[Rfam]
The family of this 188-nucleotide part of an RNA is "Bacterial small subunit ribosomal RNA". Rfam links the family to the GO terms ribosome and structural constituent of ribosome. The match comes from Rfam's covariance-model search (529 bits). The family's consensus secondary structure is taken from published work.
RNA sequence: UUGCCCGUCAAGGACUGAGAGUAAAUGGGAUAGAAAACAUUAAUUAUUUUAUAAUAAUAAAAUUAAAAAAAAAAUAUAAUUUAUUAUUUUUAUUUUAUAUUUUAAUUUUAUGUUACUUUUCGUUCAUGAUCGGUUUUAAGUCGUAACAUAGUAAUCGUAGGGGAACCUGUGGUUGAAUAAUUAAAUCU
Numbered sequence: 001u002u003g004c005c006c007g008u009c010a011a012g013g014a015c016u017g018a019g020a021g022u023a024a025a026u027g028g029g030a031u032a033g034a035a036a037a038c039a040u041u042a043a044u045u046a047u048u049u050u051a052u053a054a055u056a057a058u059a060a061a062a063u064u065a066a067a068a069a070a071a072a073a074a075u076a077u078a079a080u081u082u083a084u085u086a087u088u089u090u091u092a093u094u095u096u097a098u099a100u101u102u103u104a105a106u107u108u109u110a111u112g113u114u115a116c117u118u119u120u121c122g123u124u125c126a127u128g129a130u131c132g133g134u135u136u137u138a139a140g141u142c143g144u145a146a147c148a149u150a151g152u153a154a155u156c157g158u159a160g161g162g163g164a165a166c167c168u169g170u171g172g173u174u175g176a177a178u179a180a181u182u183a184a185a186u187c188u
Base pairs, nucleotide, nucleotide: 001150003147006143007142011137012136013135014134015133016132017131018130021127022126024124025123026122027121028120029119030118032117037113038112039111040110042108152175153174154173155172156171157170158169159168160167161166
Dot-bracket structure: (.(..((...((((((((..((.(((((((.(....((((.(.................................................................).))))...)))))))).))..))))))))....))...)..).((((((((((....)))))))))).............